A member of the RNA family "malK-I RNA", 177 nucleotides long. By type it is a cis-regulatory element.
RNA sequence: AUAUUUGGCGCAGAUUCACUCCACUCUAUGGACUGCGCACAAUAAAAAGGAGGUAUGUCCCUGCCGCGUGGCUCGCGGUGCGGCAGUGUGGAGACCUGUCGUAAUGCGUCACGUCCCUUGCGGGCGGACGCGAGGCGGAUGCGGGUGGGCCGCUCUGCCAGAGCUGAGAGCAUGUCC
Numbered sequence: 001a002u003a004u005u006u007g008g009c010g011c012a013g014a015u016u017c018a019c020u021c022c023a024c025u026c027u028a029u030g031g032a033c034u035g036c037g038c039a040c041a042a043u044a045a046a047a048a049g050g051a052g053g054u055a056u057g058u059c060c061c062u063g064c065c066g067c068g069u070g071g072c073u074c075g076c077g078g079u080g081c082g083g084c085a086g087u088g089u090g091g092a093g094a095c096c097u098g099u100c101g102u103a104a105u106g107c108g109u110c111a112c113g114u115c116c117c118u119u120g121c122g123g124g125c126g127g128a129c130g131c132g133a134g135g136c137g138g139a140u141g142c143g144g145g146u147g148g149g150c151c152g153c154u155c156u157g158c159c160a161g162a163g164c165u166g167a168g169a170g171c172a173u174g175u176c177c
Stems, first nucleotide, its partner, number of pairs: 008038006015032004064078004069166006079103008088095002106131005112126003134159006144151002